[Rfam]
RNA: Salmonella enterica Typhi npcRNA 44
Organism: Escherichia albertii
Nucleotides: 111
Base pairs, nucleotide, nucleotide: 020078021077023076024075025074026073027072028071029070034060035059036058038057039056040055041054042053043052044051083110084109085108087106088105089104090103
Number, partner (000 for none) and nucleotide at each position: 001000c002000u003000u004000u005000a006000a007000a008000a009000a010000u011000c012000u013000g014000g015000a016000u017000c018000a019000a020078g021077c022000u023076g024075a025074a026073a027072a028071u029070u030000g031000a032000a033000a034060c035059a036058c037000u038057g039056a040055a041054u042053a043052g044051u045000c046000g047000a048000a049000a050000g051044a052043u053042u054041a055040u056039u057038c058036g059035u060034g061000a062000g063000u064000c065000u066000c067000u068000c069000a070029a071028a072027u073026u074025u075024u076023c077021g078020c079000a080000a081000c082000a083110c084109g085108a086000u087106g088105a089104u090103g091000a092000a093000u094000c095000g096000a097000a098000a099000g100000a101000a102000a103090c104089a105088u106087c107000u108085u109084c110083g111000g